The record is a 70-nucleotide RNA sequence from Rodentolepis nana, which matches "HDV ribozyme from F. prausnitzii" in Rfam.
For this family Rfam cites "Widespread occurrence of self-cleaving ribozymes" (Webb et al., Science, 2009).
The family has 48 seed sequences and 3,803 matches in Rfam 15.1.
The family's consensus secondary structure is taken from published work.
A search with the family's covariance model found it, with a score of 47 bits.
Rfam links the family to the GO term catalytic activity.
RNA sequence: GGGGUGUGAUAGAUUUACCUCCACGUGGUGCACCCCGGGCAACGUAUUCUCAUACGGCAAAAAAGUCUAU
Numbered sequence: 001g002g003g004g005u006g007u008g009a010u011a012g013a014u015u016u017a018c019c020u021c022c023a024c025g026u027g028g029u030g031c032a033c034c035c036c037g038g039g040c041a042a043c044g045u046a047u048u049c050u051c052a053u054a055c056g057g058c059a060a061a062a063a064a065g066u067c068u069a070u
Stems, first nucleotide, its partner, number of pairs: 001036007017029003043056005